nuoG RNA: a 43-nucleotide RNA from Providencia stuartii. The sequence is in the family's curated seed alignment. It is annotated as a cis-regulatory element. The organism belongs to Providencia stuartii, within Bacteria.
RNA sequence: GUAUUUUUGAUUAACGCCUGCUGUUGAGCGGGCCUUUGGGAAG
Dot-bracket structure: ...............(((((((....)))))))..........